Shown here is a 100-nucleotide sequence from Paenibacillus uliginis, a member of the family "Purine riboswitch aptamer".
[Rfam]
Nucleotides: 100
Base pairs, nucleotide, nucleotide: 018086019085020084021083022082023081024080025079029048030047032045033044034043035042056076057075058074059073060072061071062070
Number, partner (000 for none) and nucleotide at each position: 001000a002000a003000c004000c005000u006000a007000a008000u009000a010000c011000a012000c013000c014000a015000u016000g017000u018086u019085u020084u021083u022082c023081g024080u025079a026000u027000a028000a029048u030047c031000c032045c033044g034043g035042g036000a037000a038000u039000u040000g041000g042035c043034c044033c045032g046000a047030g048029a049000g050000u051000u052000u053000c054000u055000a056076c057075a058074g059073a060072u061071c062070a063000c064000c065000g066000u067000a068000a069000a070062u071061g072060a073059u074058c075057u076056g077000g078000c079025u080024a081023c082022g083021a084020a085019g086018a087000a088000g089000a090000a091000g092000a093000a094000u095000u096000u097000c098000c099000u100000c